[Rfam]
RNA sequence: AAUUGGUCUGAACGCUGUGGGUUACUGUUGAGUUGAUUAACAUUGUCUCCCCCGACAACCACCCUUGACUACCUAAAA
Numbered sequence: 001a002a003u004u005g006g007u008c009u010g011a012a013c014g015c016u017g018u019g020g021g022u023u024a025c026u027g028u029u030g031a032g033u034u035g036a037u038u039a040a041c042a043u044u045g046u047c048u049c050c051c052c053c054g055a056c057a058a059c060c061a062c063c064c065u066u067g068a069c070u071a072c073c074u075a076a077a078a
Base pairs, nucleotide, nucleotide: 001074004071005070006069007068008067010066011065014062016057017056018055020053021052026042027041028040030038031037